[Rfam]
RNA sequence: UGUGGCACAGUGGGUCAGUGCGUCUGGCUAUUAACCAGAAGGUUGGUGGUUCAAGACCACCCA
Numbered sequence: 001u002g003u004g005g006c007a008c009a010g011u012g013g014g015u016c017a018g019u020g021c022g023u024c025u026g027g028c029u030a031u032u033a034a035c036c037a038g039a040a041g042g043u044u045g046g047u048g049g050u051u052c053a054a055g056a057c058c059a060c061c062c063a
Stems, first nucleotide, its partner, number of pairs: 001063002005021004023039005045061005
RNA: tRNA
Organism: Podarcis lilfordi